[Rfam]
RNA sequence: GGAAGGGAUGCAUGCCCGGUGGCAUGUCCGGACUUCAAAUCCGGGAGGGGCCGAUAGACGGUCUUUGGUGGGUUCGACUCCCAUUCUCUUCC
Numbered sequence: 001g002g003a004a005g006g007g008a009u010g011c012a013u014g015c016c017c018g019g020u021g022g023c024a025u026g027u028c029c030g031g032a033c034u035u036c037a038a039a040u041c042c043g044g045g046a047g048g049g050g051c052c053g054a055u056a057g058a059c060g061g062u063c064u065u066u067g068g069u070g071g072g073u074u075c076g077a078c079u080c081c082c083a084u085u086c087u088c089u090u091c092c
Stems, first nucleotide, its partner, number of pairs: 001092007008084001011026006027045006047065005069083004
RNA: Selenocysteine transfer RNA